[Rfam]
RNA sequence: AAGUCCACACAUACACUGGAUCUGUGCCCAGCGGUCCCUUGUUCGCCUCGGUGAAUUCAGGGUUGACUGCUGCGGCAGUUCGAUUUAUCCAAGGAGCCAUCAAAUCCCCAUGAUGUCAAUCUUCCAAUCGACAGGUCCUAGAGCAAUCGGGGGUUGGGAUUCCAGGUUCGCCGUUACAGGCUUGAGCCUGGUUGAACAGCUCUAUGAAGACGCCAUAUUCCACACCUUUUUUCCGAGAUCGUCGAUCCAUGAGGUUGGGGAUAACCAUGGCUUUUGCCUACAAUC
Numbered sequence: 001a002a003g004u005c006c007a008c009a010c011a012u013a014c015a016c017u018g019g020a021u022c023u024g025u026g027c028c029c030a031g032c033g034g035u036c037c038c039u040u041g042u043u044c045g046c047c048u049c050g051g052u053g054a055a056u057u058c059a060g061g062g063u064u065g066a067c068u069g070c071u072g073c074g075g076c077a078g079u080u081c082g083a084u085u086u087a088u089c090c091a092a093g094g095a096g097c098c099a100u101c102a103a104a105u106c107c108c109c110a111u112g113a114u115g116u117c118a119a120u121c122u123u124c125c126a127a128u129c130g131a132c133a134g135g136u137c138c139u140a141g142a143g144c145a146a147u148c149g150g151g152g153g154u155u156g157g158g159a160u161u162c163c164a165g166g167u168u169c170g171c172c173g174u175u176a177c178a179g180g181c182u183u184g185a186g187c188c189u190g191g192u193u194g195a196a197c198a199g200c201u202c203u204a205u206g207a208a209g210a211c212g213c214c215a216u217a218u219u220c221c222a223c224a225c226c227u228u229u230u231u232u233c234c235g236a237g238a239u240c241g242u243c244g245a246u247c248c249a250u251g252a253g254g255u256u257g258g259g260g261a262u263a264a265c266c267a268u269g270g271c272u273u274u275u276g277c278c279u280a281c282a283a284u285c
Stems, first nucleotide, its partner, number of pairs: 018138008026076003029072003033068004037062005043055001044053003085130001087128002093117002096114001098112001150203002158193004164189006170181002209278001211276001212271005225260003229257001233254002237247004

Rfam assigns this 285-nucleotide sequence from Cytospora chrysosperma to the family "A. fumigatus sRNA Afu_309". The family's consensus secondary structure was predicted with WAR. The family's RNA type in Rfam is small RNA.